[Rfam]
RNA sequence: AUGCUCCUAUGUUGUGUUAAGUGUUGGCAGAUAUCUGGACCCCGCCCUAGCGGUCCGGACUUGGACCCCGAACUUCCCCCUCCCCAUACGAAGUCCGGGGUUUUUUUUGCCCGGAA
Numbered sequence: 001a002u003g004c005u006c007c008u009a010u011g012u013u014g015u016g017u018u019a020a021g022u023g024u025u026g027g028c029a030g031a032u033a034u035c036u037g038g039a040c041c042c043c044g045c046c047c048u049a050g051c052g053g054u055c056c057g058g059a060c061u062u063g064g065a066c067c068c069c070g071a072a073c074u075u076c077c078c079c080c081u082c083c084c085c086a087u088a089c090g091a092a093g094u095c096c097g098g099g100g101u102u103u104u105u106u107u108u109g110c111c112c113g114g115a116a
Stems, first nucleotide, its partner, number of pairs: 034059008063104003066100005072094005
Pseudomon-1/ErsA RNA: a 116-nucleotide RNA sequence from Pseudomonas putida.
Rfam classes the family as a small RNA.
The literature on the family includes a 2015 paper in Environ Microbiol by Ferrara et al., "Post-transcriptional regulation of the virulence-associated enzyme AlgC by the sigma(22) -dependent small RNA ErsA of Pseudomonas aeruginosa".
Rfam describes the family as follows. Functions to regulate the AlgC enzyme. Based on this information, the new name ErsA for the RNA was adopted. Negatively regulates major porin oprD expression responsible for uptake of carbapenem antibiotics, by base pairing with oprD 5'UTR (leading to increased bacterial resistance to meropenem).Positively regulates amrZ mRNA and contributes to biofilm formation and motility.